Shown here is an 82-nucleotide RNA sequence from Oryzias latipes, a member of the family "tRNA". The base pairs follow the family's consensus structure, which is taken from published work.

RNA sequence: GUUGUUGUGGCCGAGCGGUUAAGGCGAUGGACUAGAAAUCCAUUGGGGUCUCCCCACGUAGGUUCAAAUCCUGCCCACAACG
Numbered sequence: 001g002u003u004g005u006u007g008u009g010g011c012c013g014a015g016c017g018g019u020u021a022a023g024g025c026g027a028u029g030g031a032c033u034a035g036a037a038a039u040c041c042a043u044u045g046g047g048g049u050c051u052c053c054c055c056a057c058g059u060a061g062g063u064u065c066a067a068a069u070c071c072u073g074c075c076c077a078c079a080a081c082g
Stems, first nucleotide, its partner, number of pairs: 001081005007075001010025003027043005058074005

It scores 54 bits against the family's covariance model.
Its family is annotated with triplet codon-amino acid adaptor activity in the Gene Ontology.